Rfam assigns this 89-nucleotide RNA sequence to the family "c-di-GMP-I-GGC riboswitch aptamer".
It is one of the family's seed sequences.
RNA sequence: CUCAAAAAUGGCAAACCCAGCGAAAGCUGGGGCUGCGAAGCUGAUGAUCUAAGGUGUCUUAUGGCACUAUGAUGGUCUGGCUGCUAAAA
Numbered sequence: 001c002u003c004a005a006a007a008a009u010g011g012c013a014a015a016c017c018c019a020g021c022g023a024a025a026g027c028u029g030g031g032g033c034u035g036c037g038a039a040g041c042u043g044a045u046g047a048u049c050u051a052a053g054g055u056g057u058c059u060u061a062u063g064g065c066a067c068u069a070u071g072a073u074g075g076u077c078u079g080g081c082u083g084c085u086a087a088a089a
Base pairs, nucleotide, nucleotide: 004085011036012035016031017030018029019028020027021026034075039082040081041080042079044078046076047073048072049071